Rfam assigns this 156-nucleotide sequence from Glycine soja to the family "MIR4371 microRNA precursor family". Its Rfam clan is "MIR4387 microRNA precursor clan". Taxonomically the source falls in Glycine subgen. Soja (Eukaryota, Streptophytina, Euphyllophyta, fabids). The match comes from Rfam's covariance-model search (132 bits).
RNA sequence: UCGUUAAGUGAUGACGUGACAGACGGAGUGUCACAUCAUCAUGCCUAAUCAGUGACAUAUCAAUGUCACGUUAUUGAAGGUGAUGACAUGACAAUGAGAUGUCAAUGACAAGACAUGAUAACGUGACACUCUAUGUUACACCAUCACUUAACGAAA
Numbered sequence: 001u002c003g004u005u006a007a008g009u010g011a012u013g014a015c016g017u018g019a020c021a022g023a024c025g026g027a028g029u030g031u032c033a034c035a036u037c038a039u040c041a042u043g044c045c046u047a048a049u050c051a052g053u054g055a056c057a058u059a060u061c062a063a064u065g066u067c068a069c070g071u072u073a074u075u076g077a078a079g080g081u082g083a084u085g086a087c088a089u090g091a092c093a094a095u096g097a098g099a100u101g102u103c104a105a106u107g108a109c110a111a112g113a114c115a116u117g118a119u120a121a122c123g124u125g126a127c128a129c130u131c132u133a134u135g136u137u138a139c140a141c142c143a144u145c146a147c148u149u150a151a152c153g154a155a156a
Stems, first nucleotide, its partner, number of pairs: 001154013016139006025132010036121001038119006045112002049108003054103005070087005